[Rfam]
RNA sequence: CUUUUUAACCCAAGUAUCAAAGGUACUAGGUGUUUUCUUAUGACCAACUUUUAAAGUUGUGUUAUAAAACCAUAAAUUUUUGGAUCAGCAUUUUCGGUGAAAAUAU
Numbered sequence: 001c002u003u004u005u006u007a008a009c010c011c012a013a014g015u016a017u018c019a020a021a022g023g024u025a026c027u028a029g030g031u032g033u034u035u036u037c038u039u040a041u042g043a044c045c046a047a048c049u050u051u052u053a054a055a056g057u058u059g060u061g062u063u064a065u066a067a068a069a070c071c072a073u074a075a076a077u078u079u080u081u082g083g084a085u086c087a088g089c090a091u092u093u094u095c096g097g098u099g100a101a102a103a104u105a106u
Stems, first nucleotide, its partner, number of pairs: 007034002009030002013027002016024001018023001041064004045059005090104006
A member of the RNA family "SL2 RNA" from Panagrolaimus sp. PS1159, 106 nucleotides long. For this family Rfam cites "trans splicing of polycistronic Caenorhabditis elegans pre-mRNAs: analysis of the SL2 RNA" (Evans and Blumenthal, Mol Cell Biol, 2000). About the family: This family represents SL2 RNA. SL2 RNA is involved in trans splicing in lower eukaryotes. Trans-splicing is a form of RNA processing. The acquisition of a spliced leader from a SL RNA is a intra-molecular reaction which precisely joins exons derived from separately transcribed RNAs. Approximately 25% of C. elegans genes are organised into polycistronic transcription units and the presence of SL2 on an mRNA is an indication the the gene is in an operon. It scores 42 bits against the family's covariance model. By type it is a non-coding RNA gene. Its Rfam clan is "SL clan".